[Rfam]
RNA sequence: CAACAUGGAGCGCCGGCUAUGUUCGCCACGUCCUGUGGCAACGCCUGCACUAGUACAUCCUGUACG
Numbered sequence: 001c002a003a004c005a006u007g008g009a010g011c012g013c014c015g016g017c018u019a020u021g022u023u024c025g026c027c028a029c030g031u032c033c034u035g036u037g038g039c040a041a042c043g044c045c046u047g048c049a050c051u052a053g054u055a056c057a058u059c060c061u062g063u064a065c066g
Stems, first nucleotide, its partner, number of pairs: 012048002015045003025039005053065004
The family of this 66-nucleotide sequence from Falsibacillus albus is "Bacillaceae-1 RNA". The source organism's lineage runs through Bacteria, Bacillota, Caryophanales, Bacillaceae and Falsibacillus.